[Rfam]
RNA sequence: CCUCUCUGCUGUGAUGAAAUUAUCUCUUAUGUCCUUGCUGGAUUGGGACAUGAAUAUGAUGGUUUAGUGUCAUCAAUAUACACCCGGGUUGAUCCUAUUUCUCUUGAGGAAGUUUAUUCUCUCCUAAUUGUAACAGAGU
Numbered sequence: 001c002c003u004c005u006c007u008g009c010u011g012u013g014a015u016g017a018a019a020u021u022a023u024c025u026c027u028u029a030u031g032u033c034c035u036u037g038c039u040g041g042a043u044u045g046g047g048a049c050a051u052g053a054a055u056a057u058g059a060u061g062g063u064u065u066a067g068u069g070u071c072a073u074c075a076a077u078a079u080a081c082a083c084c085c086g087g088g089u090u091g092a093u094c095c096u097a098u099u100u101c102u103c104u105u106g107a108g109g110a111a112g113u114u115u116a117u118u119c120u121c122u123c124c125u126a127a128u129u130g131u132a133a134c135a136g137a138g139u
Base pairs, nucleotide, nucleotide: 004138005137006136007135008134089107090106091105092104
RNA: Small nucleolar RNA Z247
Organism: Salix viminalis